This 193-nucleotide sequence from Streptococcus danieliae belongs to the Rfam family "6S / SsrS RNA".
RNA sequence: GAUACGCUGUGGUGUACGAAUUCAUACUCAAGUGUUGACCGACUAUUUUUUGUAUAACCCGGGAGACAAAGACAUCUAACCGCGUGCAGGCCGUUCCACACGGAAGCAGCUUCAGUUAGAGCAUGUCACCCACCUGCUUAUUUGCGCGGGUUCAAUACAAACCAUGAAUUUUCGGCACCAAUACAGCUAUUUU
Numbered sequence: 001g002a003u004a005c006g007c008u009g010u011g012g013u014g015u016a017c018g019a020a021u022u023c024a025u026a027c028u029c030a031a032g033u034g035u036u037g038a039c040c041g042a043c044u045a046u047u048u049u050u051u052g053u054a055u056a057a058c059c060c061g062g063g064a065g066a067c068a069a070a071g072a073c074a075u076c077u078a079a080c081c082g083c084g085u086g087c088a089g090g091c092c093g094u095u096c097c098a099c100a101c102g103g104a105a106g107c108a109g110c111u112u113c114a115g116u117u118a119g120a121g122c123a124u125g126u127c128a129c130c131c132a133c134c135u136g137c138u139u140a141u142u143u144g145c146g147c148g149g150g151u152u153c154a155a156u157a158c159a160a161a162c163c164a165u166g167a168a169u170u171u172u173c174g175g176c177a178c179c180a181a182u183a184c185a186g187c188u189a190u191u192u193u
Stems, first nucleotide, its partner, number of pairs: 002191001006187006012178004017174003032158007039150002061131003065127004075120006086107002091103004
The family's RNA type in Rfam is non-coding RNA gene.